[Rfam]
RNA sequence: AGGGGAAACGCGGCCUCCCCUAUAGAUGGAUUGCGCCAUCCAAGCGCUGC
Numbered sequence: 001a002g003g004g005g006a007a008a009c010g011c012g013g014c015c016u017c018c019c020c021u022a023u024a025g026a027u028g029g030a031u032u033g034c035g036c037c038a039u040c041c042a043a044g045c046g047c048u049g050c
Base pairs, nucleotide, nucleotide: 001021002020003019004018005017006016010050011049012048013047014046025040026039027038028037029036
RNA: chrB-b RNA
Organism: Pseudorhodoplanes sinuspersici